[Rfam]
RNA sequence: AGGAAUACAUGAUGAUCUCACCUCAACUUGAACUGUCUCACUCAUUAUUGAUGAUAAGAAAGACCUGAUAUUCUA
Numbered sequence: 001a002g003g004a005a006u007a008c009a010u011g012a013u014g015a016u017c018u019c020a021c022c023u024c025a026a027c028u029u030g031a032a033c034u035g036u037c038u039c040a041c042u043c044a045u046u047a048u049u050g051a052u053g054a055u056a057a058g059a060a061a062g063a064c065c066u067g068a069u070a071u072u073c074u075a
Base pairs, nucleotide, nucleotide: 002074003073004072005071006070007069
Shown here is a 75-nucleotide sequence from Octodon degus, a member of the family "Small nucleolar RNA SNORD81". By type it is a C/D-box small nucleolar RNA. It scores 72 bits against the family's covariance model. The base pairs follow the family's consensus structure, which was predicted with PFOLD. Clan: SNORD26 clan. On this family, see Smith and Steitz, Mol Cell Biol 1998: "Classification of gas5 as a multi-small-nucleolar-RNA (snoRNA) host gene and a member of the 5'-terminal oligopyrimidine gene family reveals common features of snoRNA host genes". Rfam links the family to the GO terms nucleolus and RNA processing.